This 132-nucleotide RNA sequence from Eragrostis curvula belongs to the Rfam family "Small nucleolar RNA F1/F2/snoR5a". Rfam 15.1 lists 325 matches to the family in 97 species. The family's consensus secondary structure was predicted with PFOLD. From the family's description: This family contains F1, F2 and snoR5a sequences, all of which are members of the the H/ACA class of snoRNA that guide the sites of modification of uridines to pseudouridines. Rfam classes the family as an H/ACA-box small nucleolar RNA.
Nucleotides: 132
Stems, first nucleotide, its partner, number of pairs: 004060002008058001018050003022044007067125002070122002082109004089102003
Number, partner (000 for none) and nucleotide at each position: 001000a002000a003000a004060u005059g006000c007000a008058u009000c010000u011000g012000g013000u014000a015000u016000c017000u018050g019049a020048c021000u022044u023043g024042u025041g026040g027039u028038c029000u030000u031000c032000u033000u034000u035000u036000g037000u038028g039027g040026c041025u042024a043023u044022a045000u046000g047000c048020g049019u050018c051000u052000c053000a054000a055000a056000u057000u058008a059005c060004a061000a062000a063000a064000a065000g066000g067125a068124g069000g070122g071121g072000a073000u074000c075000u076000u077000g078000c079000g080000a081000c082109a083108c084107u085106g086000u087000u088000u089102g090101c091100u092000c093000c094000u095000a096000a097000a098000u099000u100091a101090g102089c103000u104000u105000u106085c107084a108083g109082u110000u111000a112000c113000u114000u115000a116000u117000a118000u119000a120000g121071c122070u123000g124068u125067u126000u127000u128000c129000g130000u131000g132000u